[Rfam]
RNA sequence: GAUGGAUCCAAACCAAUCCAUUAACAACUUUUUUUGUUUUAUGGAUGGAUAGGAUGGAUUUUUUA
Numbered sequence: 001g002a003u004g005g006a007u008c009c010a011a012a013c014c015a016a017u018c019c020a021u022u023a024a025c026a027a028c029u030u031u032u033u034u035u036g037u038u039u040u041a042u043g044g045a046u047g048g049a050u051a052g053g054a055u056g057g058a059u060u061u062u063u064u065a
Base pairs, nucleotide, nucleotide: 004061005060006059007058008057011055013053014052016050017049018048019047020046021045022044026039027038029036